[Rfam]
A member of the RNA family "Glycine riboswitch aptamer" from Thioalkalivibrio denitrificans, 100 nucleotides long. This family represents the bacterial glycine riboswitch. Rfam links the family to the GO term glycine biosynthetic process.
RNA sequence: CCGGUCUGCACGGGAGAGCCCUCUCCGGUCCCGCCGAGAGAGGCGCCGAAGGCGCAACUUCCGCCCGGAAACGCUCAGGCAAACGGACCGUGUGUGAUCA
Numbered sequence: 001c002c003g004g005u006c007u008g009c010a011c012g013g014g015a016g017a018g019c020c021c022u023c024u025c026c027g028g029u030c031c032c033g034c035c036g037a038g039a040g041a042g043g044c045g046c047c048g049a050a051g052g053c054g055c056a057a058c059u060u061c062c063g064c065c066c067g068g069a070a071a072c073g074c075u076c077a078g079g080c081a082a083a084c085g086g087a088c089c090g091u092g093u094g095u096g097a098u099c100a
Stems, first nucleotide, its partner, number of pairs: 007094007020043006045080003048076002052074003058068002